The record is a 151-nucleotide sequence from Ascoidea rubescens, which matches "Small nucleolar RNA snR8" in Rfam. The organism belongs to Ascoidea rubescens, within Eukaryota. The base pairs follow the family's consensus structure, which was predicted with WAR. Its Rfam clan is "SNORA56 clan". It is annotated as an H/ACA-box small nucleolar RNA.
RNA sequence: CUUCUUCAUGAUACGAUGCAGCCUAUUCACUGCUUUGCUCUUCAUCGUGAGCAAAUGGAGGGGAAAAGGUUGCUAGAAAAAUCCGAAGUCGACCUUAUACUGGUAUAAUGCUAUUGAUCAUUAUCUUGGUAACUGCGAUUGCGAUACAUGU
Numbered sequence: 001c002u003u004c005u006u007c008a009u010g011a012u013a014c015g016a017u018g019c020a021g022c023c024u025a026u027u028c029a030c031u032g033c034u035u036u037g038c039u040c041u042u043c044a045u046c047g048u049g050a051g052c053a054a055a056u057g058g059a060g061g062g063g064a065a066a067a068g069g070u071u072g073c074u075a076g077a078a079a080a081a082u083c084c085g086a087a088g089u090c091g092a093c094c095u096u097a098u099a100c101u102g103g104u105a106u107a108a109u110g111c112u113a114u115u116g117a118u119c120a121u122u123a124u125c126u127u128g129g130u131a132a133c134u135g136c137g138a139u140u141g142c143g144a145u146a147c148a149u150g151u
Stems, first nucleotide, its partner, number of pairs: 018073002021070002030060002033057001036053005084143002089138003100129003105124006